[Rfam]
RNA sequence: UCUGGCCCCGUCAUCUGGGGAGUAGCCAGCCGCCGCAACCGGCGGGCGCUUGCGUCAACAUACUUGGUCGAGAGGCCAUGGCGCAUGCGGGACGGGAAACCGUUCGGGCGAGACCAAUGGCGCGGAGAUCCUCGUCCGGCCGGGCGGGGGGACACGUGCCGUUGCGUUUCGAAACCGCCCGGCCU
Numbered sequence: 001u002c003u004g005g006c007c008c009c010g011u012c013a014u015c016u017g018g019g020g021a022g023u024a025g026c027c028a029g030c031c032g033c034c035g036c037a038a039c040c041g042g043c044g045g046g047c048g049c050u051u052g053c054g055u056c057a058a059c060a061u062a063c064u065u066g067g068u069c070g071a072g073a074g075g076c077c078a079u080g081g082c083g084c085a086u087g088c089g090g091g092a093c094g095g096g097a098a099a100c101c102g103u104u105c106g107g108g109c110g111a112g113a114c115c116a117a118u119g120g121c122g123c124g125g126a127g128a129u130c131c132u133c134g135u136c137c138g139g140c141c142g143g144g145c146g147g148g149g150g151g152a153c154a155c156g157u158g159c160c161g162u163u164g165c166g167u168u169u170c171g172a173a174a175c176c177g178c179c180c181g182g183c184c185u
Base pairs, nucleotide, nucleotide: 030045031044048088049087051085052084053083054082055081056080057079065078066077067076068075069074089185090184091183093181094180095179
RNA: Manganese Mn2+ riboswitch aptamer (yybP-ykoY)
Organism: Novosphingobium sp. PC22D